A member of the RNA family "MIR1520 microRNA precursor family" from Glycine max, 141 nucleotides long. Clan: MIR1520 microRNA precursor clan.
RNA sequence: UUCUUGUUGGAUGAUGACGGUCACGUGUGUGAUGUUCUGAUUGAUCAAUGAAAACAAAGCAUUUUAUUUUUUAAGGAGUUGACAUCUAAUCACAACAUGACAGUCAUCCAAUAAGAACAUGAUGCAUGAAAGUGAACAUCA
Dot-bracket structure: ....................(((.((.....((.((((.(((...................................................................))).)))).))...)).)))............